[Rfam]
RNA: Small nucleolar RNA snR80
RNA sequence: UAACGUUUGAGACACUCUGGAAUUUGGUUUUGGUAUCGAUAUUCUGGUUUCAGGAUAUUGGGCUGAAUUUACCUCCAUACUAUCUUCCGAUUUAUGAUCAAACAAGAUUUACUUCGACAACUACUCACCAACAUAGCCCUGUAAUGACUAUAUUGGUCCUUUUUUCACUGUCGUAAAU
Numbered sequence: 001u002a003a004c005g006u007u008u009g010a011g012a013c014a015c016u017c018u019g020g021a022a023u024u025u026g027g028u029u030u031u032g033g034u035a036u037c038g039a040u041a042u043u044c045u046g047g048u049u050u051c052a053g054g055a056u057a058u059u060g061g062g063c064u065g066a067a068u069u070u071a072c073c074u075c076c077a078u079a080c081u082a083u084c085u086u087c088c089g090a091u092u093u094a095u096g097a098u099c100a101a102a103c104a105a106g107a108u109u110u111a112c113u114u115c116g117a118c119a120a121c122u123a124c125u126c127a128c129c130a131a132c133a134u135a136g137c138c139c140u141g142u143a144a145u146g147a148c149u150a151u152a153u154u155g156g157u158c159c160u161u162u163u164u165u166c167a168c169u170g171u172c173g174u175a176a177a178u
Base pairs, nucleotide, nucleotide: 007101008100009099018089019088020087021086022085025082026081027080028079031065032064033063034062115173116172117171118170128156129155130154131153133151134150135149136148138146